RAGATH-18 RNA: a 74-nucleotide sequence.
The sequence is in the family's curated seed alignment.
Actinobacteria, Firmicutes, Fusobacteria, Thermotogae (1 example).

RNA sequence: CCUAUGGAGAGUAUAAAAAAUGUGAGUAGUGUUUGGAUUUAUUCAACACAAAAACAUACUCGUUGAAAUAGGAA
Numbered sequence: 001c002c003u004a005u006g007g008a009g010a011g012u013a014u015a016a017a018a019a020a021u022g023u024g025a026g027u028a029g030u031g032u033u034u035g036g037a038u039u040u041a042u043u044c045a046a047c048a049c050a051a052a053a054a055c056a057u058a059c060u061c062g063u064u065g066a067a068a069u070a071g072g073a074a
Stems, first nucleotide, its partner, number of pairs: 001072005009061005021056003029049003034045002